Rfam assigns this 74-nucleotide RNA sequence from Zootermopsis nevadensis to the family "mir-124 microRNA precursor family". Pairs were carried over by alignment from the consensus structure, which was predicted with PFOLD.
[Rfam]
RNA sequence: UUCUCCUCGUGUUCACUGUUGGCCUUGAUGUGUCGAAAUGUGGAUCAUAAGGCACGCGGUGAAUGCCAAGAGCG
Numbered sequence: 001u002u003c004u005c006c007u008c009g010u011g012u013u014c015a016c017u018g019u020u021g022g023c024c025u026u027g028a029u030g031u032g033u034c035g036a037a038a039u040g041u042g043g044a045u046c047a048u049a050a051g052g053c054a055c056g057c058g059g060u061g062a063a064u065g066c067c068a069a070g071a072g073c074g
Stems, first nucleotide, its partner, number of pairs: 003072003009066008018057002023052005030045001

Source information:
On this family, see Lai et al., Genome Biol 2003: "Computational identification of Drosophila microRNA genes".